[Rfam]
RNA sequence: GACUUGGUCUCACGAGCAAGCUUAAGCCGUUAGGUGUAGGCGUAGCGAAAGCGAGUCUUAAUAGGGCGUCGAGUUCGUGGGAUCAGACCCGAAACCGAGUGAUCUAGGCAUGGCCAGGUUGAAGGUAAGGUAACACUUACUGGAGGACCGAACCCACAUCUGUUGAAAAAGAUCGGGAUGAGCUGUGCCUAGGGGUGAAAGGCCAAUCAAACUCGGAGAUAGCUGGUU
Numbered sequence: 001g002a003c004u005u006g007g008u009c010u011c012a013c014g015a016g017c018a019a020g021c022u023u024a025a026g027c028c029g030u031u032a033g034g035u036g037u038a039g040g041c042g043u044a045g046c047g048a049a050a051g052c053g054a055g056u057c058u059u060a061a062u063a064g065g066g067c068g069u070c071g072a073g074u075u076c077g078u079g080g081g082a083u084c085a086g087a088c089c090c091g092a093a094a095c096c097g098a099g100u101g102a103u104c105u106a107g108g109c110a111u112g113g114c115c116a117g118g119u120u121g122a123a124g125g126u127a128a129g130g131u132a133a134c135a136c137u138u139a140c141u142g143g144a145g146g147a148c149c150g151a152a153c154c155c156a157c158a159u160c161u162g163u164u165g166a167a168a169a170a171g172a173u174c175g176g177g178a179u180g181a182g183c184u185g186u187g188c189c190u191a192g193g194g195g196u197g198a199a200a201g202g203c204c205a206a207u208c209a210a211a212c213u214c215g216g217a218g219a220u221a222g223c224u225g226g227u228u
Base pairs, nucleotide, nucleotide: 005085006084007083008082009081010080011079012078013077014076015075016074017073020041021040022039023038026035027034028033045052046051055067056066057065058064088226089225091223095216096215097214098213099212100211104192105191106190107189108188109187110186111185112184113183114182115180117149118148119147120146124141125140126139127138128137129136153177154176155175158173159172160171161170194204195203196202
Background: Bacterial large subunit ribosomal RNA: a 228-nucleotide part of an RNA from Sulfitobacter mediterraneus. The match comes from Rfam's covariance-model search (2648 bits). NCBI's taxonomy places the organism under Bacteria, Pseudomonadati, Pseudomonadota, Rhodobacterales, Sulfitobacter. The family's consensus secondary structure is taken from published work.